[Rfam]
RNA sequence: AGUGGACGGGCAGGCGAGCGGGGUCUGUCUCUUUGAGAGUUGUCUCUACCGAGUGAAUGUCGCUGCCUCCCCGUUCCCUGUUUUUGUGGCUGACUUUCAGCGGGCGGGAGGAGGCAAGGGGCCGAGCCCUAGCAGUGCGCAAAAAAACGUCAGCCACGGCAGAAACUCCAGCUCGUGGCCCGUCUGCCCCGUCCGAGCCCAGCCCCGGCCCGAACGCCCUGGGGGCGCCCCCCGAGGAUCCUGCGCUCACCCGCGGAGCCCCGGCUGCCCACGAGCAGAGGCGGCGGCCGUCUCGGGGCCCUUACGUGCGUGGGCGCCCACUGCGGCCGCCAAGAGCUCGGCUCUGUCAGCCUCGGGAUGCGCGGGGGACCGUGGGUGAGCCCCAAGGCUUGGCGGGGGGCGGGGGCACAGGGAGAGUAACCGUGAGGUGCGCUCAGACGGCUGGGCCCUCCCUCGAGCUGUGGGAGCCGCCCCCAGCGCGCCCCUCGCACACCA
Numbered sequence: 001a002g003u004g005g006a007c008g009g010g011c012a013g014g015c016g017a018g019c020g021g022g023g024u025c026u027g028u029c030u031c032u033u034u035g036a037g038a039g040u041u042g043u044c045u046c047u048a049c050c051g052a053g054u055g056a057a058u059g060u061c062g063c064u065g066c067c068u069c070c071c072c073g074u075u076c077c078c079u080g081u082u083u084u085u086g087u088g089g090c091u092g093a094c095u096u097u098c099a100g101c102g103g104g105c106g107g108g109a110g111g112a113g114g115c116a117a118g119g120g121g122c123c124g125a126g127c128c129c130u131a132g133c134a135g136u137g138c139g140c141a142a143a144a145a146a147a148c149g150u151c152a153g154c155c156a157c158g159g160c161a162g163a164a165a166c167u168c169c170a171g172c173u174c175g176u177g178g179c180c181c182g183u184c185u186g187c188c189c190c191g192u193c194c195g196a197g198c199c200c201a202g203c204c205c206c207g208g209c210c211c212g213a214a215c216g217c218c219c220u221g222g223g224g225g226c227g228c229c230c231c232c233c234g235a236g237g238a239u240c241c242u243g244c245g246c247u248c249a250c251c252c253g254c255g256g257a258g259c260c261c262c263g264g265c266u267g268c269c270c271a272c273g274a275g276c277a278g279a280g281g282c283g284g285c286g287g288c289c290g291u292c293u294c295g296g297g298g299c300c301c302u303u304a305c306g307u308g309c310g311u312g313g314g315c316g317c318c319c320a321c322u323g324c325g326g327c328c329g330c331c332a333a334g335a336g337c338u339c340g341g342c343u344c345u346g347u348c349a350g351c352c353u354c355g356g357g358a359u360g361c362g363c364g365g366g367g368g369a370c371c372g373u374g375g376g377u378g379a380g381c382c383c384c385a386a387g388g389c390u391u392g393g394c395g396g397g398g399g400g401c402g403g404g405g406g407c408a409c410a411g412g413g414a415g416a417g418u419a420a421c422c423g424u425g426a427g428g429u430g431c432g433c434u435c436a437g438a439c440g441g442c443u444g445g446g447c448c449c450u451c452c453c454u455c456g457a458g459c460u461g462u463g464g465g466a467g468c469c470g471c472c473c474c475c476a477g478c479g480c481g482c483c484c485c486u487c488g489c490a491c492a493c494c495a
Stems, first nucleotide, its partner, number of pairs: 005184007014176006020169005064116005072106005078100003089154006095147003188412002191409002194406001245381009259367005270357001272355003283331009295319003333345004425487004430482004444473004450466004